[Rfam]
RNA sequence: GUUGUUGCGAUGAUUAUAAACAAUUCCUCGUACUGAAUGCUAUUGCCAUGGCAUGAAAGACACUUUACACCCAUAGAAUAUGAGCAUCA
Numbered sequence: 001g002u003u004g005u006u007g008c009g010a011u012g013a014u015u016a017u018a019a020a021c022a023a024u025u026c027c028u029c030g031u032a033c034u035g036a037a038u039g040c041u042a043u044u045g046c047c048a049u050g051g052c053a054u055g056a057a058a059g060a061c062a063c064u065u066u067a068c069a070c071c072c073a074u075a076g077a078a079u080a081u082g083a084g085c086a087u088c089a
Stems, first nucleotide, its partner, number of pairs: 003089002006086002
RNA: Small nucleolar RNA snoR8a